Small nucleolar RNA SNORD116: a 92-nucleotide RNA from Gorilla gorilla. The family's RNA type in Rfam is C/D-box small nucleolar RNA. A search with the family's covariance model found it, with a score of 46 bits. Pairs were carried over by alignment from the consensus structure, which was predicted with PFOLD.
[Rfam]
RNA sequence: GGAUCGAUGAUGACUUUAAAAUGGAUCUCAUCGGAAUCUGAACAAAAUGAGUGACCAGAUCACUUCUGUGCCACUUCUGUGAGCUGAGGUCC
Numbered sequence: 001g002g003a004u005c006g007a008u009g010a011u012g013a014c015u016u017u018a019a020a021a022u023g024g025a026u027c028u029c030a031u032c033g034g035a036a037u038c039u040g041a042a043c044a045a046a047a048u049g050a051g052u053g054a055c056c057a058g059a060u061c062a063c064u065u066c067u068g069u070g071c072c073a074c075u076u077c078u079g080u081g082a083g084c085u086g087a088g089g090u091c092c
Stems, first nucleotide, its partner, number of pairs: 001092005027051003031045001033043001
Its family is annotated with RNA processing and nucleolus in the Gene Ontology.